[Rfam]
RNA sequence: AGGUCACUUCAAAGAGGGCUUGUGGGGCUGUGAAACCAAGGGGUCUUAACAGUAUGACCAAAAACUGAAGUUCUCUAUAGGAUGCUGUAGCACUCAAUGGUGCUAUGUUUUCCUCAGGAGAUAUGA
Numbered sequence: 001a002g003g004u005c006a007c008u009u010c011a012a013a014g015a016g017g018g019c020u021u022g023u024g025g026g027g028c029u030g031u032g033a034a035a036c037c038a039a040g041g042g043g044u045c046u047u048a049a050c051a052g053u054a055u056g057a058c059c060a061a062a063a064a065c066u067g068a069a070g071u072u073c074u075c076u077a078u079a080g081g082a083u084g085c086u087g088u089a090g091c092a093c094u095c096a097a098u099g100g101u102g103c104u105a106u107g108u109u110u111u112c113c114u115c116a117g118g119a120g121a122u123a124u125g126a
Base pairs, nucleotide, nucleotide: 002059003058004057005056006055014047015046016045017044019042020041021040023039026037027036072121073120074119075118076117079114080113081112082111087106088105089104090103091102092101093100094099
Shown here is a 126-nucleotide RNA sequence, a member of the family "Small nucleolar RNA SNORA25". Rfam's curators put it in the seed alignment. It is annotated as an H/ACA-box small nucleolar RNA. ACA25 is a member of the H/ACA class of snoRNA that guide the sites of modification of uridines to pseudouridines. The family has 30 seed sequences and 1,129 matches in Rfam 15.1. Pairs were carried over by alignment from the consensus structure, which was predicted with RNAfold.